[Rfam]
RNA sequence: AAUCGGCGUACAACGAUGGGGACGUGUCCCCGAUGUGGUGCCGAGGGUGGCAAGCCACAGCAAAAGCACCAUCUGGUGGAAAGCUGAAAAAUCACGUGUCGGGCAAUAGGGUUUGGUAGGCUGGCAACAGUUCGAAGAAGUCUGGCCCG
Numbered sequence: 001a002a003u004c005g006g007c008g009u010a011c012a013a014c015g016a017u018g019g020g021g022a023c024g025u026g027u028c029c030c031c032g033a034u035g036u037g038g039u040g041c042c043g044a045g046g047g048u049g050g051c052a053a054g055c056c057a058c059a060g061c062a063a064a065a066g067c068a069c070c071a072u073c074u075g076g077u078g079g080a081a082a083g084c085u086g087a088a089a090a091a092u093c094a095c096g097u098g099u100c101g102g103g104c105a106a107u108a109g110g111g112u113u114u115g116g117u118a119g120g121c122u123g124g125c126a127a128c129a130g131u132u133c134g135a136a137g138a139a140g141u142c143u144g145g146c147c148c149g
Base pairs, nucleotide, nucleotide: 003044004043005042006041007040008039011038013036014035015034018031019030020029021028022027046056047055058086059085060084061083067078068077069076070075100149101148102147103146104145109142110141112139113138114137119132120131121130122129123128